[Rfam]
RNA sequence: CAGGUCGGGGCUAUUGAAUGCCGCCGCCUGUCUGCGUACCAUAGCGCCCAUGGUUGUAAUUCCGGCAACCCGGAGGCGUUCUGGACAGGGGUUCGAUUCCCCUCACCUCCACCCAAGUGCAUUUCAUGCUGUCGCUAGUGUGUUUGGGUGGGGGUGUACUGGUUUCGACAGGGCGGGCAAAGGUGCGCAGGCAACCCGAGAGGCGACGGACGUAAUCCGCGCAAAACCACAAACGCCAACGAUGAGCGUUUCGCAGUCGCUGCAUAAGCACUGCCGGGGCCGCUGAAGCCUUGUAACCCAAGACAGCCGAUGGGGACUUCGGUCCCCAUCGUCA
Number, nucleotide and partner (000 for none) at each position: 001c000002a000003g000004g000005u000006c000007g000008g000009g000010g000011c000012u000013a000014u000015u000016g000017a000018a000019u000020g000021c000022c000023g000024c000025c000026g000027c000028c000029u000030g000031u000032c000033u000034g000035c000036g000037u000038a000039c000040c000041a000042u000043a000044g000045c000046g000047c000048c000049c000050a000051u000052g196053g195054u194055u193056g192057u000058a000059a000060u000061u000062c191063c190064g000065g188066c187067a000068a184069c183070c182071c000072g000073g000074a000075g000076g000077c175078g174079u173080u172081c171082u170083g169084g000085a000086c000087a103088g102089g101090g100091g099092u000093u000094c000095g000096a000097u000098u000099c091100c090101c089102c088103u087104c156105a155106c154107c153108u152109c151110c150111a149112c148113c147114c000115a000116a000117g000118u000119g000120c000121a000122u000123u000124u000125c000126a000127u000128g000129c000130u000131g000132u000133c000134g000135c000136u000137a000138g000139u000140g000141u000142g000143u000144u000145u000146g000147g113148g112149u111150g110151g109152g108153g107154g106155u105156g104157u000158a000159c000160u000161g000162g000163u000164u000165u000166c000167g000168a000169c083170a082171g081172g080173g079174c078175g077176g000177g000178c000179a000180a000181a000182g070183g069184u068185g000186c000187g066188c065189a000190g063191g062192c056193a055194a054195c053196c052197c212198g211199a000200g000201a000202g000203g000204c000205g000206a000207c000208g000209g000210a000211c198212g197213u000214a000215a000216u000217c000218c000219g000220c000221g000222c000223a000224a000225a000226a000227c000228c000229a000230c000231a000232a000233a000234c000235g000236c000237c000238a000239a000240c000241g000242a000243u000244g000245a000246g000247c000248g000249u000250u000251u000252c000253g000254c000255a000256g000257u000258c000259g000260c000261u000262g000263c000264a000265u000266a000267a000268g000269c000270a000271c000272u000273g000274c000275c000276g000277g291278g290279g289280c288281c000282g307283c306284u305285g304286a000287a000288g280289c279290c278291u277292u000293g000294u000295a000296a000297c000298c000299c000300a000301a000302g000303a000304c285305a284306g283307c282308c000309g000310a329311u328312g327313g326314g325315g324316a323317c322318u000319u000320c000321g000322g317323u316324c315325c314326c313327c312328a311329u310330c000331g000332u000333c000334a000
RNA: Betaproteobacteria transfer-messenger RNA